[Rfam]
RNA sequence: CACCUCUGGAAAGCAGACGCUGAACCCGUUCAGACGUCUCACCGACGGGGCAAGCCGGGCGGAUUACCCGCGCGGUGAAACUCUCAGGGCACCCGACAGAGGGGGAGGA
Numbered sequence: 001c002a003c004c005u006c007u008g009g010a011a012a013g014c015a016g017a018c019g020c021u022g023a024a025c026c027c028g029u030u031c032a033g034a035c036g037u038c039u040c041a042c043c044g045a046c047g048g049g050g051c052a053a054g055c056c057g058g059g060c061g062g063a064u065u066a067c068c069c070g071c072g073c074g075g076u077g078a079a080a081c082u083c084u085c086a087g088g089g090c091a092c093c094c095g096a097c098a099g100a101g102g103g104g105g106a107g108g109a
Base pairs, nucleotide, nucleotide: 001104003102004101005100006099007098008097015039016038017037018036042088043087044085045084048083049082050081054076055075056074057073

This 109-nucleotide RNA from Stackebrandtia nassauensis belongs to the Rfam family "Glycine riboswitch aptamer".
Its family is annotated with glycine biosynthetic process in the Gene Ontology.
Lineage of the source: Bacteria > Actinomycetota > Glycomycetaceae > Stackebrandtia > Stackebrandtia nassauensis.
A search with the family's covariance model found it, with a score of 42 bits.